[Rfam]
RNA: Small nucleolar RNA SNORD66
RNA sequence: CAUCUGUGAUGGUUAAUUUUAUGUGUCAACUUGUCUGGGCCACAGAGACCAGAUGUGUGGUCAGACAUUCUAGAUG
Numbered sequence: 001c002a003u004c005u006g007u008g009a010u011g012g013u014u015a016a017u018u019u020u021a022u023g024u025g026u027c028a029a030c031u032u033g034u035c036u037g038g039g040c041c042a043c044a045g046a047g048a049c050c051a052g053a054u055g056u057g058u059g060g061u062c063a064g065a066c067a068u069u070c071u072a073g074a075u076g
Base pairs, nucleotide, nucleotide: 001076002075003074004073